The family of this 87-nucleotide sequence from Sitophilus oryzae is "mir-282 microRNA precursor family".
A search with the family's covariance model found it, with a score of 58 bits.
On this family, see Li et al., BMC Genomics 2009: "Direct sequencing and expression analysis of a large number of miRNAs in Aedes aegypti and a multi-species survey of novel mosquito miRNAs".
Lineage of the source: Eukaryota > Insecta > Polyphaga > Dryophthorinae > Sitophilus.

[Rfam]
RNA sequence: CAAGGCUUGAAAGCUAGCCUCUCCUAGGCUUUGUCUUUGUUUUUGAUAUUGGACAUAGCCCAGUUGAGGUUAACUAUAAACCUCUAG
Numbered sequence: 001c002a003a004g005g006c007u008u009g010a011a012a013g014c015u016a017g018c019c020u021c022u023c024c025u026a027g028g029c030u031u032u033g034u035c036u037u038u039g040u041u042u043u044u045g046a047u048a049u050u051g052g053a054c055a056u057a058g059c060c061c062a063g064u065u066g067a068g069g070u071u072a073a074c075u076a077u078a079a080a081c082c083u084c085u086a087g
Base pairs, nucleotide, nucleotide: 012075013074015072016071017070018069019068020067027060028059029058030057032055033054034053035052036051